[Rfam]
RNA sequence: UGCACUUGUAUGGUAUCUGCAUUCAGCAGUUUCUUUCUGUUGGUUGUUCAAAGGACAGUGCAAUAUAAAUUCAGUAUGUGGCAUCGUUGGUUUUCUUGUCUUCGUGCAUGUGAAACCUGGUAUUUUUAUUGAUACAGUU
Numbered sequence: 001u002g003c004a005c006u007u008g009u010a011u012g013g014u015a016u017c018u019g020c021a022u023u024c025a026g027c028a029g030u031u032u033c034u035u036u037c038u039g040u041u042g043g044u045u046g047u048u049c050a051a052a053g054g055a056c057a058g059u060g061c062a063a064u065a066u067a068a069a070u071u072c073a074g075u076a077u078g079u080g081g082c083a084u085c086g087u088u089g090g091u092u093u094u095c096u097u098g099u100c101u102u103c104g105u106g107c108a109u110g111u112g113a114a115a116c117c118u119g120g121u122a123u124u125u126u127u128a129u130u131g132a133u134a135c136a137g138u139u
Base pairs, nucleotide, nucleotide: 002061003060004059005058007057008056016054017053018052019047020046021045023043024042025041026040027039028038029037064128065127067125068124069123070122071120072119073118074117081107082106083105084104

Overview:
Shown here is a 139-nucleotide RNA sequence from Rhinolophus ferrumequinum, a member of the family "Small nucleolar RNA SNORA8". It scores 128 bits against the family's covariance model. Rfam 15.1 lists 1,490 matches to the family in 610 species.